[Rfam]
RNA: SAH (S-adenosyl-L-homocysteine) riboswitch aptamer
Organism: Aidingimonas halophila
RNA sequence: UGCACCGAGGAGCGCUGCAGCUGGUACGAACCGGCAAGGCUCGGUCGCAGAAGUCGACCCCACAUAACAACGGCGCUCGGAUUUC
Numbered sequence: 001u002g003c004a005c006c007g008a009g010g011a012g013c014g015c016u017g018c019a020g021c022u023g024g025u026a027c028g029a030a031c032c033g034g035c036a037a038g039g040c041u042c043g044g045u046c047g048c049a050g051a052a053g054u055c056g057a058c059c060c061c062a063c064a065u066a067a068c069a070a071c072g073g074c075g076c077u078c079g080g081a082u083u084u085c
Base pairs, nucleotide, nucleotide: 004045005044006043007042008041021034022033023032024031025030